[Rfam]
Shown here is a 79-nucleotide RNA from Syntrophotalea acetylenica, a member of the family "c-di-GMP-I-GGC riboswitch aptamer".
RNA sequence: AUAGUCAAAGCUAAACCCCUCGUGAGGGGGGGACGGAAAGCGGCGGGUCUUCCCGAAGAAGACGGCCGAGCUGCCAAAG
Number, nucleotide and partner (000 for none) at each position: 001a000002u000003a000004g075005u000006c000007a000008a000009a000010g000011c036012u035013a000014a000015a000016c031017c030018c029019c028020u027021c026022g000023u000024g000025a000026g021027g020028g019029g018030g017031g016032g000033a000034c065035g012036g011037a000038a000039a072040g071041c070042g000043g000044c068045g067046g066047g063048u062049c061050u000051u000052c000053c000054c000055g000056a000057a000058g000059a000060a000061g049062a048063c047064g000065g034066c046067c045068g044069a000070g041071c040072u039073g000074c000075c004076a000077a000078a000079g000
Its family is annotated with cyclic-di-GMP binding in the Gene Ontology. Lineage of the source: Bacteria > Pseudomonadati > Desulfuromonadales > Syntrophotaleaceae > Syntrophotalea.